[Rfam]
RNA sequence: CCCAUGUGGGUACUCCCAGGAGGUCACUCUCGCUGGGCUCUGUCCAGGUGGCAUUGCCAAGCACGGGGCUUUGACCCAUGAUAUAUAGUCCCUUUCUACGAUGUUGGAAAUGAAGCCAGGCUUUGAGUUUGCGCUUGCACAUUCCUACAGCUUCUCAAGAGUUCUGCGGGCGAUGACUGAGGAGAUGAACCAUGCAGGGAAACAGCU
Numbered sequence: 001c002c003c004a005u006g007u008g009g010g011u012a013c014u015c016c017c018a019g020g021a022g023g024u025c026a027c028u029c030u031c032g033c034u035g036g037g038c039u040c041u042g043u044c045c046a047g048g049u050g051g052c053a054u055u056g057c058c059a060a061g062c063a064c065g066g067g068g069c070u071u072u073g074a075c076c077c078a079u080g081a082u083a084u085a086u087a088g089u090c091c092c093u094u095u096c097u098a099c100g101a102u103g104u105u106g107g108a109a110a111u112g113a114a115g116c117c118a119g120g121c122u123u124u125g126a127g128u129u130u131g132c133g134c135u136u137g138c139a140c141a142u143u144c145c146u147a148c149a150g151c152u153u154c155u156c157a158a159g160a161g162u163u164c165u166g167c168g169g170g171c172g173a174u175g176a177c178u179g180a181g182g183a184g185a186u187g188a189a190c191c192a193u194g195c196a197g198g199g200a201a202a203c204a205g206c207u
Stems, first nucleotide, its partner, number of pairs: 001107002004104004008045005015037003019030004048099004060089001061086001063084001065082001066079001134198006151184006161171004
Notes:
Shown here is a 207-nucleotide RNA from Crocuta crocuta, a member of the family "Small nucleolar RNA SNORA73 family". Its Rfam clan is "snR30-U17 clan". The organism belongs to Crocuta, within Eukaryota. Rfam's curators write: U17 (SNORA73A and SNORA73B) also known as E1 belongs to the H/ACA class of small nucleolar RNAs (snoRNAs). Vertebrate U17 is intron-encoded and ranges in length from 200-230 nucleotides, longer than most snoRNAs. It is one of the most abundant snoRNAs in human cells and is essential for the cleavage of pre-rRNA within the 5' external transcribed spacer (ETS). Rfam 15.1 lists 2,326 matches to the family in 660 species. The family's consensus secondary structure is taken from published work. Rfam classes the family as an H/ACA-box small nucleolar RNA. The match comes from Rfam's covariance-model search (120 bits).